[Rfam]
RNA sequence: GCUGUGCGAUGAUGCGAGAGGUUGCCGACACACCCGGCCCCUUUGCCAUGGGGCAUAAGUCGGGUUUUCUCGCGGAGUAUGUCCGAUAUAAAAUUGGGCGA
Numbered sequence: 001g002c003u004g005u006g007c008g009a010u011g012a013u014g015c016g017a018g019a020g021g022u023u024g025c026c027g028a029c030a031c032a033c034c035c036g037g038c039c040c041c042u043u044u045g046c047c048a049u050g051g052g053g054c055a056u057a058a059g060u061c062g063g064g065u066u067u068u069c070u071c072g073c074g075g076a077g078u079a080u081g082u083c084c085g086a087u088a089u090a091a092a093a094u095u096g097g098g099c100g101a
Base pairs, nucleotide, nucleotide: 014073015072016071018069019068020067021066025063026062027061028060029059080100081099082098083097084096085095086094087093
The record is a 101-nucleotide RNA sequence from Paenibacillus sp. 598K, which matches "S10-Clostridia ribosomal protein leader" in Rfam. By type it is a cis-regulatory leader. Taxonomically the source falls in Paenibacillus (Bacteria, Bacillati, Bacillota, Bacilli). The literature on the family includes a 2020 paper in BMC Microbiol by Eckert and Weinberg, "Discovery of 20 novel ribosomal leader candidates in bacteria and archaea". The family's consensus secondary structure is taken from published work.